[Rfam]
RNA sequence: GCUGGACCCGGCUUGUUCCGGGUGGCUCGGCCCGGCGCCUAUCCCCGGGACAACU
Numbered sequence: 001g002c003u004g005g006a007c008c009c010g011g012c013u014u015g016u017u018c019c020g021g022g023u024g025g026c027u028c029g030g031c032c033c034g035g036c037g038c039c040u041a042u043c044c045c046c047g048g049g050a051c052a053a054c055u
Stems, first nucleotide, its partner, number of pairs: 006023006031049005
RNA: sul1 RNA
Organism: Pelagerythrobacter rhizovicinus